[Rfam]
RNA sequence: AGGAGACCAGAUACACUGUCACAUUGAAAGUCAAGUGACGGUCCCUUGUGUCUCCUAUAACACCAUGGCCUUCUGGUGACUGCAGAGAGUCAAGCUGACUCUGCGGACAGAUACGAGGUCGACAUAC
Numbered sequence: 001a002g003g004a005g006a007c008c009a010g011a012u013a014c015a016c017u018g019u020c021a022c023a024u025u026g027a028a029a030g031u032c033a034a035g036u037g038a039c040g041g042u043c044c045c046u047u048g049u050g051u052c053u054c055c056u057a058u059a060a061c062a063c064c065a066u067g068g069c070c071u072u073c074u075g076g077u078g079a080c081u082g083c084a085g086a087g088a089g090u091c092a093a094g095c096u097g098a099c100u101c102u103g104c105g106g107a108c109a110g111a112u113a114c115g116a117g118g119u120c121g122a123c124a125u126a127c
Stems, first nucleotide, its partner, number of pairs: 002055006015042004022035001025034001066121007080106003085101003
Rfam assigns this 127-nucleotide sequence from Pomacea canaliculata to the family "Small Cajal body specific RNA 8".
Lineage of the source: Eukaryota > Lophotrochozoa > Mollusca > Ampullariidae > Pomacea.
The family's RNA type in Rfam is small Cajal body RNA.
The literature on the family includes a 2002 paper in EMBO J by Darzacq et al., "Cajal body-specific small nuclear RNAs: a novel class of 2'-O-methylation and pseudouridylation guide RNAs".
The base pairs follow the family's consensus structure, which is taken from published work.